[Rfam]
RNA: c-di-AMP riboswitch aptamer (ydaO/yuaA leader)
Organism: Paenibacillus psychroresistens
RNA sequence: UCGCUCAAAAGGCCGAAGCUUCUUAUGAAACACGGGGGACCCAUCUUUAGGGGUGAAGCCAUUUCAUUGGCCGGGUACUUCUCUGUUAUCCGAAUCCGUCAGCUAACCUCGUAGGCCGCUAUUAGGAGAGGA
Number, nucleotide and partner (000 for none) at each position: 001u000002c000003g000004c000005u000006c000007a000008a000009a000010a000011g117012g116013c115014c114015g000016a000017a000018g031019c000020u029021u000022c000023u000024u000025a000026u000027g000028a000029a020030a000031c018032a112033c111034g110035g109036g108037g107038g000039a000040c000041c000042c050043a000044u000045c000046u000047u000048u000049a000050g042051g097052g096053g095054u000055g000056a000057a000058g000059c070060c069061a068062u000063u000064u000065c000066a000067u000068u061069g060070g059071c000072c000073g091074g090075g089076u088077a000078c000079u000080u000081c000082u000083c000084u000085g000086u000087u000088a076089u075090c074091c073092g000093a000094a000095u053096c052097c051098g000099u000100c000101a000102g000103c000104u000105a000106a000107c037108c036109u035110c034111g033112u032113a000114g014115g013116c012117c011118g000119c000120u000121a000122u000123u000124a000125g000126g000127a000128g000129a000130g000131g000132a000